About this RNA: A member of the RNA family "Ribosomal protein L10 leader" from Guopingia tenuis, 128 nucleotides long. By type it is a cis-regulatory leader.
[Rfam]
RNA sequence: GCAAGUAAUAUGUUCUGUCCGUAGACAGCAGGUGGUGCAAUGGCACAUAAAUCCCGCCGAGGAGAGGAAAGUGGAUAUAUUCCCGUUUUCUGUUCUCGUGGACAGAAAACGGGUUUUUUAAUGCCCGU
Numbered sequence: 001g002c003a004a005g006u007a008a009u010a011u012g013u014u015c016u017g018u019c020c021g022u023a024g025a026c027a028g029c030a031g032g033u034g035g036u037g038c039a040a041u042g043g044c045a046c047a048u049a050a051a052u053c054c055c056g057c058c059g060a061g062g063a064g065a066g067g068a069a070a071g072u073g074g075a076u077a078u079a080u081u082c083c084c085g086u087u088u089u090c091u092g093u094u095c096u097c098g099u100g101g102a103c104a105g106a107a108a109a110c111g112g113g114u115u116u117u118u119u120a121a122u123g124c125c126c127g128u
Base pairs, nucleotide, nucleotide: 028057029056031054032053035046036045037044082113083112084111085110086109087108088107089106090105091104092103093102094101095100